[Rfam]
RNA sequence: CUGCUCACGCUGGCCUUGGCUCCCUUCUGACAUCACUUCCUGGUCCCAUGACCAGGAAGUGAUGUCAGAAGGGAGCCAAGGCUGGCAUGAGCACCUGC
Numbered sequence: 001c002u003g004c005u006c007a008c009g010c011u012g013g014c015c016u017u018g019g020c021u022c023c024c025u026u027c028u029g030a031c032a033u034c035a036c037u038u039c040c041u042g043g044u045c046c047c048a049u050g051a052c053c054a055g056g057a058a059g060u061g062a063u064g065u066c067a068g069a070a071g072g073g074a075g076c077c078a079a080g081g082c083u084g085g086c087a088u089g090a091g092c093a094c095c096u097g098c
Stems, first nucleotide, its partner, number of pairs: 010085007018077002021074024
Notes: mraW RNA: a 98-nucleotide RNA from Geotrypetes seraphini. A search with the family's covariance model found it, with a score of 53 bits.